[Rfam]
Streptomyces RNA 4115: a 112-nucleotide RNA from Streptomyces jumonjinensis. Taxonomically the source falls in Streptomyces (Bacteria, Bacillati, Actinomycetes, Kitasatosporales). The base pairs follow the family's consensus structure. From the family's description: Identified by deep sequencing of transcriptome at the end of exponential growth phase. Sequencing size consistent with notrthern blot size.
RNA sequence: GCGUGGGUCGGUCCGCUGUGUACUGGAACCAGUGGGCUGGGGGACACCGCCGUCUUCAAUCCCCGCGGGCGGCGGGCAGGUCCGGGAGGCGGACCGCGCCUCCCGGACUGCU
Numbered sequence: 001g002c003g004u005g006g007g008u009c010g011g012u013c014c015g016c017u018g019u020g021u022a023c024u025g026g027a028a029c030c031a032g033u034g035g036g037c038u039g040g041g042g043g044a045c046a047c048c049g050c051c052g053u054c055u056u057c058a059a060u061c062c063c064c065g066c067g068g069g070c071g072g073c074g075g076g077c078a079g080g081u082c083c084g085g086g087a088g089g090c091g092g093a094c095c096g097c098g099c100c101u102c103c104c105g106g107a108c109u110g111c112u
Stems, first nucleotide, its partner, number of pairs: 001111002007077002009039010040045001047075009057065001079109013